[Rfam]
RNA sequence: AAUCUAUGAUGUGCUUGCUUUGUCAGAGAAGUGAAGUGCGGAGAUUUUACCAACGGUUUAUGUAUUCAGCCGUUUCUGACUAGAAGUUUUUAACUUUGAACAAAAAAUACAUUUA
Numbered sequence: 001a002a003u004c005u006a007u008g009a010u011g012u013g014c015u016u017g018c019u020u021u022g023u024c025a026g027a028g029a030a031g032u033g034a035a036g037u038g039c040g041g042a043g044a045u046u047u048u049a050c051c052a053a054c055g056g057u058u059u060a061u062g063u064a065u066u067c068a069g070c071c072g073u074u075u076c077u078g079a080c081u082a083g084a085a086g087u088u089u090u091u092a093a094c095u096u097u098g099a100a101c102a103a104a105a106a107a108u109a110c111a112u113u114u115a
Stems, first nucleotide, its partner, number of pairs: 001046004011039006017032005023079004062110003083097006
RNA: drum RNA